The family of this 113-nucleotide RNA from Actibacterium mucosum is "Guanidine-I riboswitch aptamer". NCBI's taxonomy places the organism under Bacteria, Pseudomonadati, Alphaproteobacteria, Rhodobacterales, Actibacterium mucosum. Rfam's curators write: This family represents a conserved RNA structure found upstream of the ykkC and yxkD genes in Bacillus subtilis and related genes in other bacteria. The function of this family is unclear although it has been suggested that it may function to switch on efflux pumps and detoxification systems in response to harmful environmental molecules. Rfam 15.1 lists 1,509 matches to the family in 1,281 species.
RNA sequence: AUGCAGGGUGCCUAGGGUUCCGCCGGUUCAUUUCAAACCGGGACUGGUCCGAGAGGUGCCGCCGAUCCGGCAAAUUCCGGACCGGUACACGGCGGGAAAAAAUCCCGGGAGAA
Numbered sequence: 001a002u003g004c005a006g007g008g009u010g011c012c013u014a015g016g017g018u019u020c021c022g023c024c025g026g027u028u029c030a031u032u033u034c035a036a037a038c039c040g041g042g043a044c045u046g047g048u049c050c051g052a053g054a055g056g057u058g059c060c061g062c063c064g065a066u067c068c069g070g071c072a073a074a075u076u077c078c079g080g081a082c083c084g085g086u087a088c089a090c091g092g093c094g095g096g097a098a099a100a101a102a103u104c105c106c107g108g109g110a111g112a113a
Base pairs, nucleotide, nucleotide: 007060008059009058010057011056012055015050016049020047021046022044023041024040025039026038027037028036061086062085063084064083066081067080068079069078070077088108090111094106095105096104